[Rfam]
RNA sequence: GUCAAAUGAUGUUCUAUUGAUCUGAGUGGUUAAGGCUACUCUGCUGACAUCUAUCCACCAUCCUUUGACUGAUGACU
Numbered sequence: 001g002u003c004a005a006a007u008g009a010u011g012u013u014c015u016a017u018u019g020a021u022c023u024g025a026g027u028g029g030u031u032a033a034g035g036c037u038a039c040u041c042u043g044c045u046g047a048c049a050u051c052u053a054u055c056c057a058c059c060a061u062c063c064u065u066u067g068a069c070u071g072a073u074g075a076c077u
Stems, first nucleotide, its partner, number of pairs: 001076004026039004
RNA: Small nucleolar RNA SNORD83